About this RNA: A member of the RNA family "ZMP/ZTP riboswitch aptamer (pfl RNA motif)" from Comamonas flocculans, 152 nucleotides long. Taxonomically the source falls in Comamonas (Bacteria, Pseudomonadati, Pseudomonadota, Betaproteobacteria).
[Rfam]
RNA sequence: CGCGCGGUACGCAACUGGCGAUAGGUCUGGCAUUGCCCGCCAUGGGGCAGCUGGCUGACGUGGAGCGCCGGCGCAACCGGCGCAUACCACGGGGAAGCGUACCGCACGGGCACAAGCCGUCGCGCGUUUUGUCGUUCGCCUGGGCAGCCCUU
Numbered sequence: 001c002g003c004g005c006g007g008u009a010c011g012c013a014a015c016u017g018g019c020g021a022u023a024g025g026u027c028u029g030g031c032a033u034u035g036c037c038c039g040c041c042a043u044g045g046g047g048c049a050g051c052u053g054g055c056u057g058a059c060g061u062g063g064a065g066c067g068c069c070g071g072c073g074c075a076a077c078c079g080g081c082g083c084a085u086a087c088c089a090c091g092g093g094g095a096a097g098c099g100u101a102c103c104g105c106a107c108g109g110g111c112a113c114a115a116g117c118c119g120u121c122g123c124g125c126g127u128u129u130u131g132u133c134g135u136u137c138g139c140c141u142g143g144g145c146a147g148c149c150c151u152u
Stems, first nucleotide, its partner, number of pairs: 004105009015094002017140005060090004129147005